[Rfam]
Nucleotides: 063
Base pairs, nucleotide, nucleotide: 005057007055008054009053010052011051012050013049020043021042022041023040024039027036028035
Number, partner (000 for none) and nucleotide at each position: 001000u002000u003000u004000u005057g006000c007055a008054u009053a010052a011051a012050u013049c014000u015000c016000u017000u018000u019000c020043u021042a022041g023040u024039a025000a026000u027036g028035u029000g030000u031000u032000g033000u034000a035028a036027c037000u038000c039024u040023g041022c042021u043020a044000u045000a046000a047000u048000a049013g050012a051011u052010u053009u054008a055007u056000u057005c058000c059000u060000u061000u062000u063000u